[Rfam]
RNA sequence: ACGUACGUCCGUACGCUCCGGUUCCUGCGCGCUGGCCGAGCACAGCUGAGGCCCGCUCGCGACGUGGGCUGAGCG
Numbered sequence: 001a002c003g004u005a006c007g008u009c010c011g012u013a014c015g016c017u018c019c020g021g022u023u024c025c026u027g028c029g030c031g032c033u034g035g036c037c038g039a040g041c042a043c044a045g046c047u048g049a050g051g052c053c054c055g056c057u058c059g060c061g062a063c064g065u066g067g068g069c070u071g072a073g074c075g
Stems, first nucleotide, its partner, number of pairs: 002015005019034004024029001046073002049070002052067001
RNA: Xanthomonas sRNA sX9
Organism: Metapseudomonas resinovorans